The record is a 128-nucleotide sequence from Neotoma lepida, which matches "Small Cajal body specific RNA 24" in Rfam. Rfam describes the family as follows. scaRNAs are a specific class of small nuclear RNAs which localise to the Cajal bodies and guide the modification of RNA polymerase II transcribed spliceosomal RNAs U1, U2, U4, U5 and U12. ACA12 belongs to the H/ACA box class of guide RNAs as it has the predicted hairpin-hinge-hairpin-tail structure,the conserved H/ACA-box motifs and is found associated with GAR1. By type it is a small Cajal body RNA. A search with the family's covariance model found it, with a score of 87 bits. The family has 23 seed sequences and 689 matches in Rfam 15.1. The family's consensus secondary structure was predicted with RNAfold. Gene Ontology terms of the family: RNA processing, Cajal body and nucleolus.
[Rfam]
RNA sequence: UGGACAUUUAUUUUGUCAGUUUCUUGUUGAAGUGAAGAUAGCUUUUUGUAAAUGUCCUGGUGAAAUGUAGUAGCUUUCUGUUCAUCUUUUGCAAGAAGAAAGGAUGGAUCUUUUGUUUAAAAAAAAAA
Numbered sequence: 001u002g003g004a005c006a007u008u009u010a011u012u013u014u015g016u017c018a019g020u021u022u023c024u025u026g027u028u029g030a031a032g033u034g035a036a037g038a039u040a041g042c043u044u045u046u047u048g049u050a051a052a053u054g055u056c057c058u059g060g061u062g063a064a065a066u067g068u069a070g071u072a073g074c075u076u077u078c079u080g081u082u083c084a085u086c087u088u089u090u091g092c093a094a095g096a097a098g099a100a101a102g103g104a105u106g107g108a109u110c111u112u113u114u115g116u117u118u119a120a121a122a123a124a125a126a127a128a
Stems, first nucleotide, its partner, number of pairs: 002057010018043004022038004068122001071119003087102004